[Rfam]
RNA: RNase E 5' UTR element
Organism: Citrobacter freundii
RNA sequence: GUCUCCGUGUUGAAUCUUGUUAAAACAAGAACUUUUCCGGAAUGACCCAAUUUUGCCCGACCGAUCAUCAACGCAGCAAUGGCGUAAGACGUAUUGAUCUUUCAGGCAGUUAGCGGGCUGCGGGUUGCAGUCCUUACCGGUAAGUGCUCUAUGAAUUUCGCGUUGUAGGAAGACGGCAAGUCUGGGAACCCCCAAGAAUUUACUCCGGUGAGUGACUGGGGUGAGUGACUGGGGUGAGUAGAUGAAGCCAACGCACCGAUAGCGUGAAAGACGACGAGCAUAAUGGAAGCGUUUCUGGAGAGUAACACCCAGACUGUUCCCCUGAUAAUUGCGCUGUGUUUCCGUAUGAAAUACAGGCAACCGACACUCUGCGCCUCUUUGAGCUGACGAUAACCGUGAGGUUGGCGACGCGAAUAGACACGAGGCCAUCGGUUCACACCCGGAAAGGCAUUACUCUGCCCGCAGCUUAGUCGUCAA
Numbered sequence: 001g002u003c004u005c006c007g008u009g010u011u012g013a014a015u016c017u018u019g020u021u022a023a024a025a026c027a028a029g030a031a032c033u034u035u036u037c038c039g040g041a042a043u044g045a046c047c048c049a050a051u052u053u054u055g056c057c058c059g060a061c062c063g064a065u066c067a068u069c070a071a072c073g074c075a076g077c078a079a080u081g082g083c084g085u086a087a088g089a090c091g092u093a094u095u096g097a098u099c100u101u102u103c104a105g106g107c108a109g110u111u112a113g114c115g116g117g118c119u120g121c122g123g124g125u126u127g128c129a130g131u132c133c134u135u136a137c138c139g140g141u142a143a144g145u146g147c148u149c150u151a152u153g154a155a156u157u158u159c160g161c162g163u164u165g166u167a168g169g170a171a172g173a174c175g176g177c178a179a180g181u182c183u184g185g186g187a188a189c190c191c192c193c194a195a196g197a198a199u200u201u202a203c204u205c206c207g208g209u210g211a212g213u214g215a216c217u218g219g220g221g222u223g224a225g226u227g228a229c230u231g232g233g234g235u236g237a238g239u240a241g242a243u244g245a246a247g248c249c250a251a252c253g254c255a256c257c258g259a260u261a262g263c264g265u266g267a268a269a270g271a272c273g274a275c276g277a278g279c280a281u282a283a284u285g286g287a288a289g290c291g292u293u294u295c296u297g298g299a300g301a302g303u304a305a306c307a308c309c310c311a312g313a314c315u316g317u318u319c320c321c322c323u324g325a326u327a328a329u330u331g332c333g334c335u336g337u338g339u340u341u342c343c344g345u346a347u348g349a350a351a352u353a354c355a356g357g358c359a360a361c362c363g364a365c366a367c368u369c370u371g372c373g374c375c376u377c378u379u380u381g382a383g384c385u386g387a388c389g390a391u392a393a394c395c396g397u398g399a400g401g402u403u404g405g406c407g408a409c410g411c412g413a414a415u416a417g418a419c420a421c422g423a424g425g426c427c428a429u430c431g432g433u434u435c436a437c438a439c440c441c442g443g444a445a446a447g448g449c450a451u452u453a454c455u456c457u458g459c460c461c462g463c464a465g466c467u468u469a470g471u472c473g474u475c476a477a
Stems, first nucleotide, its partner, number of pairs: 004041004016029005053109005059103002064098004071092003076083002115468011134446002137443004146321001330359003334356004339351004360433005373426005388407002391404005